[Rfam]
RNA sequence: ACUCUCUCGGCUCUGCAUAGUUGCACUUGGCUUCACCCGUGUGACUUUCGUAACGGGGAGAGAGAGAAAAGAUCUCCUCAGGACCUCGGAUGGGCCUUACUGUGGCCUCUCUUUCCUUGAGGGGUGCAACAGGC
Dot-bracket structure: .(((((((..(((((...((((((((............)))))))).......))))).))))))).......(((((.(((.....(((.(((((.......))))).)))...))).)))))..........
Notes
The record is a 134-nucleotide sequence, which matches "Small nucleolar RNA SNORA64/SNORA10 family" in Rfam. It is annotated as an H/ACA-box small nucleolar RNA. On this family, see Narayanan et al., EMBO J 1999: "Nucleolar localization signals of box H/ACA small nucleolar RNAs". It is one of the family's seed sequences. Rfam 15.1 lists 703 matches to the family in 311 species.